RNA sequence: ACGCCGCAUCAGUAGAGCGACAUCAUUUUUCCUAAGAGUAAUGCCUGCUGGCGAUGCCAGCGCGA
Numbered sequence: 001a002c003g004c005c006g007c008a009u010c011a012g013u014a015g016a017g018c019g020a021c022a023u024c025a026u027u028u029u030u031c032c033u034a035a036g037a038g039u040a041a042u043g044c045c046u047g048c049u050g051g052c053g054a055u056g057c058c059a060g061c062g063c064g065a
Stems, first nucleotide, its partner, number of pairs: 003061002006057004016049004022042002025039003